[Rfam]
The record is a 101-nucleotide RNA from Eubacterium uniforme, which matches "RT-5 RNA" in Rfam. It is annotated as a small RNA. A search with the family's covariance model found it, with a score of 80 bits. Taxonomically the source falls in Eubacterium (Bacteria, Bacillota, Clostridia, Eubacteriales).

RNA sequence: AUGCGCCUGCAAAGGAUAAAGCAAAUGGAAGAAAAAUGUUUUGCAGGCAACAUCCAUUUGUAUAAUCUUGUAACCUCUUACAGAGGUGUUAAACCUUUUUU
Numbered sequence: 001a002u003g004c005g006c007c008u009g010c011a012a013a014g015g016a017u018a019a020a021g022c023a024a025a026u027g028g029a030a031g032a033a034a035a036a037u038g039u040u041u042u043g044c045a046g047g048c049a050a051c052a053u054c055c056a057u058u059u060g061u062a063u064a065a066u067c068u069u070g071u072a073a074c075c076u077c078u079u080a081c082a083g084a085g086g087u088g089u090u091a092a093a094c095c096u097u098u099u100u101u
Base pairs, nucleotide, nucleotide: 005048006047007046008045009044010043011042013069014068015067017065021061022060023059024058025057026056027055028054037052038051039050040049073087074086075085076084077083078082